About this RNA:
Shown here is a 108-nucleotide RNA from Herbinix hemicellulosilytica, a member of the family "NiCo (Nickel/Cobalt) riboswitch aptamer". It scores 65 bits against the family's covariance model. Its family is annotated with cobalt ion binding and metal ion homeostasis in the Gene Ontology. The literature on the family includes a 2015 paper in Mol Cell by Furukawa et al., "Bacterial riboswitches cooperatively bind Ni(2+) or Co(2+) ions and control expression of heavy metal transporters". Clan: NiCo_riboswitches. The source organism's lineage runs through Bacteria, Bacillati, Bacillota, Lachnospirales and Herbinix.
[Rfam]
RNA sequence: AUUGAAAAAUCUGAACAGGCCAUAAACUUUUAAAGUUUAGGGAGCCGGGCCGUUAUUCGGCAGCAGAAAGUGUGUGCAUAAGCAAGCCGACACAUCUGUGGGACAGUG
Numbered sequence: 001a002u003u004g005a006a007a008a009a010u011c012u013g014a015a016c017a018g019g020c021c022a023u024a025a026a027c028u029u030u031u032a033a034a035g036u037u038u039a040g041g042g043a044g045c046c047g048g049g050c051c052g053u054u055a056u057u058c059g060g061c062a063g064c065a066g067a068a069a070g071u072g073u074g075u076g077c078a079u080a081a082g083c084a085a086g087c088c089g090a091c092a093c094a095u096c097u098g099u100g101g102g103a104c105a106g107u108g
Stems, first nucleotide, its partner, number of pairs: 011106003016102001018046003023039005049061004063099005